RNA sequence: CUUUAUUUAAAGCCGGAAGCUUUAGAGUUAAGAACUGGAGCGGAGGAACCAAAAUUUGGGGCUUAUCUUGAGCAAGCUUUAUUUCUAAAAAGCAGCCAGGGGGGACAUCUCUCAGUCCUAGCCCGUCAGCUAACUCCGUCGGCAUUGGGAGGAGACUGA
Numbered sequence: 001c002u003u004u005a006u007u008u009a010a011a012g013c014c015g016g017a018a019g020c021u022u023u024a025g026a027g028u029u030a031a032g033a034a035c036u037g038g039a040g041c042g043g044a045g046g047a048a049c050c051a052a053a054a055u056u057u058g059g060g061g062c063u064u065a066u067c068u069u070g071a072g073c074a075a076g077c078u079u080u081a082u083u084u085c086u087a088a089a090a091a092g093c094a095g096c097c098a099g100g101g102g103g104g105a106c107a108u109c110u111c112u113c114a115g116u117c118c119u120a121g122c123c124c125g126u127c128a129g130c131u132a133a134c135u136c137c138g139u140c141g142g143c144a145u146u147g148g149g150a151g152g153a154g155a156c157u158g159a
Base pairs, nucleotide, nucleotide: 012143013142014141020038021037040139041138042137043136044135045134050058051057059124060123061122067100068099069098070097103118104117105116106115
About this RNA
Shown here is a 159-nucleotide RNA from Trichocoleus sp. FACHB-262, a member of the family "c-di-AMP riboswitch aptamer (ydaO/yuaA leader)". Pairs were carried over by alignment from the consensus structure. The source organism's lineage runs through Bacteria, Bacillati, Cyanophyceae, Leptolyngbyales and Trichocoleus. Rfam 15.1 lists 7,607 matches to the family in 2,262 species.